This 99-nucleotide RNA from Aneurinibacillus soli belongs to the Rfam family "Glycine riboswitch aptamer".
[Rfam]
RNA sequence: CGGCUCUGGAGAGAGUCUGCAUAAGGCAGGCCACCAAAGGGGAAACUGGCUUCUAUAGGCGCUGGGUAACUCUCAGGUACAAGGGACAGAGAUGGGGAA
Numbered sequence: 001c002g003g004c005u006c007u008g009g010a011g012a013g014a015g016u017c018u019g020c021a022u023a024a025g026g027c028a029g030g031c032c033a034c035c036a037a038a039g040g041g042g043a044a045a046c047u048g049g050c051u052u053c054u055a056u057a058g059g060c061g062c063u064g065g066g067u068a069a070c071u072c073u074c075a076g077g078u079a080c081a082a083g084g085g086a087c088a089g090a091g092a093u094g095g096g097g098a099a
Stems, first nucleotide, its partner, number of pairs: 001094002004091005015031004033078003037073001040072003046065005